RNA sequence: UGGUGUACAGGAGAUGGUAUUUCUCCUUUAACUGCUCUUGGGGUAAUGAUGCCUAAGAACCC
Numbered sequence: 001u002g003g004u005g006u007a008c009a010g011g012a013g014a015u016g017g018u019a020u021u022u023c024u025c026c027u028u029u030a031a032c033u034g035c036u037c038u039u040g041g042g043g044u045a046a047u048g049a050u051g052c053c054u055a056a057g058a059a060c061c062c
Stems, first nucleotide, its partner, number of pairs: 010026004016053006035042002
Fluoride riboswitch aptamer (crcB RNA motif): a 62-nucleotide RNA sequence from Pseudomonas sp. HPB0071. NCBI's taxonomy places the organism under Bacteria, Pseudomonadati, Gammaproteobacteria, Pseudomonadaceae, Pseudomonas. A search with the family's covariance model found it, with a score of 34 bits.